[Rfam]
RNA sequence: AUGGCAGCGAUGCCAUAUCUGAAGUAAGCGGGACUACAACUGCCUGUACUGACGAACAGGAACUGCAUAAGAGGCAUAAUGGAUUGGGAUAAGUAUGCACAACAAUACAAAGUCCUGAAAGAACACGUGAUUCAUUAUGUAGAUGCAGCAGCGAUAGGCAGAAGGCUAUUCAU
Numbered sequence: 001a002u003g004g005c006a007g008c009g010a011u012g013c014c015a016u017a018u019c020u021g022a023a024g025u026a027a028g029c030g031g032g033a034c035u036a037c038a039a040c041u042g043c044c045u046g047u048a049c050u051g052a053c054g055a056a057c058a059g060g061a062a063c064u065g066c067a068u069a070a071g072a073g074g075c076a077u078a079a080u081g082g083a084u085u086g087g088g089a090u091a092a093g094u095a096u097g098c099a100c101a102a103c104a105a106u107a108c109a110a111a112g113u114c115c116u117g118a119a120a121g122a123a124c125a126c127g128u129g130a131u132u133c134a135u136u137a138u139g140u141a142g143a144u145g146c147a148g149c150a151g152c153g154a155u156a157g158g159c160a161g162a163a164g165g166c167u168a169u170u171c172a173u
Stems, first nucleotide, its partner, number of pairs: 001016006028173001030171003037165001041160006047153001049151003063148006074140003078136007087115004093108004